The family of this 214-nucleotide RNA from Phytoamicus setariae is "permuted transfer-messenger RNA". Taxonomically the source falls in Phytoamicus (Bacteria, Pseudomonadati, Pseudomonadota, Hyphomicrobiales). The base pairs follow the family's consensus structure, which is taken from published work.
[Rfam]
RNA sequence: GGCAAUAAACGGGCGGUGAAAUAAACCCAUUGGACCCGGGGGCGGUACCCGGCGCCUCCACCAAAAACCGAUCGGUCAGACCGGUUUUUGAUGGGGGCGAAAUAGGAUCGACAAGGGCGUAAAGAUCGACUUUUUGCUCGGCAUUGUACCACCGUUAUCGGGCUAUAUUGUAGUUGCAAACGACAACUAUGCUGAAGUUCGUCUCGCUGCUUAA
Number, nucleotide and partner (000 for none) at each position: 001g138002g137003c136004a135005a134006u000007a000008a000009a000010c000011g000012g000013g000014c128015g127016g126017u125018g000019a000020a000021a000022u000023a000024a000025a000026c117027c116028c115029a000030u114031u113032g112033g000034a000035c000036c052037c051038g050039g049040g048041g000042g000043c000044g000045g000046u000047a000048c040049c039050c038051g037052g036053c099054g098055c097056c096057u095058c094059c093060a000061c000062c000063a000064a000065a000066a000067a000068c000069c000070g000071a000072u000073c000074g000075g000076u000077c000078a000079g000080a000081c000082c000083g000084g000085u000086u000087u000088u000089u000090g000091a000092u000093g059094g058095g057096g056097g055098c054099g053100a000101a000102a000103u000104a000105g000106g000107a000108u000109c000110g000111a000112c032113a031114a030115g028116g027117g026118c000119g000120u000121a000122a000123a000124g000125a017126u016127c015128g014129a000130c000131u000132u000133u000134u005135u004136g003137c002138u001139c154140g153141g152142c000143a000144u000145u000146g000147u000148a000149c000150c000151a000152c141153c140154g139155u000156u000157a000158u000159c000160g000161g000162g000163c000164u000165a000166u000167a000168u000169u000170g000171u000172a000173g000174u000175u000176g000177c000178a000179a000180a000181c000182g000183a000184c000185a000186a000187c000188u000189a000190u000191g000192c000193u000194g000195a000196a000197g000198u000199u000200c000201g000202u000203c000204u000205c000206g000207c000208u000209g000210c000211u000212u000213a000214a000
By type it is a non-coding RNA gene. Its family is annotated with RNA catabolic process in the Gene Ontology. The match comes from Rfam's covariance-model search (148 bits).